RNA sequence: AUUUCAUACGGGAAUGAUGUUCUCCCACGGGAAACCGAAACCGCUUAUCAUAAGCUGAUGACUUCUGCGUUUUA
Dot-bracket structure: .........((((..[[.[[[.))))................((((.....))))....]]].]].........
This 74-nucleotide RNA from Hominimerdicola alba belongs to the Rfam family "Fluoride riboswitch aptamer (crcB RNA motif)". A search with the family's covariance model found it, with a score of 49 bits. The organism belongs to Hominimerdicola alba, within Bacteria.